This 94-nucleotide sequence from Gallus gallus belongs to the Rfam family "Vault RNA". Pairs were carried over by alignment from the consensus structure, which is taken from published work.

[Rfam]
RNA sequence: GGGCCGGCUUUAGCCCAGCGGUUCCUUCGGCAAACAGUUUCUGAGUUGCGGGCCCCGACUGGGGUUCGAUCCCGCGGGCACCCCUGGCCCAUUU
Numbered sequence: 001g002g003g004c005c006g007g008c009u010u011u012a013g014c015c016c017a018g019c020g021g022u023u024c025c026u027u028c029g030g031c032a033a034a035c036a037g038u039u040u041c042u043g044a045g046u047u048g049c050g051g052g053c054c055c056c057g058a059c060u061g062g063g064g065u066u067c068g069a070u071c072c073c074g075c076g077g078g079c080a081c082c083c084c085u086g087g088c089c090c091a092u093u094u
Base pairs, nucleotide, nucleotide: 002089003088004087005086006085007084013079014078015077016076018075019074020073021072027069028068029067030066
About the family: This family of RNAs are found as part of the enigmatic vault ribonucleoprotein complex. The complex consists of a major vault protein (MVP), two minor vault proteins (VPARP and TEP1), and several small untranslated RNA molecules.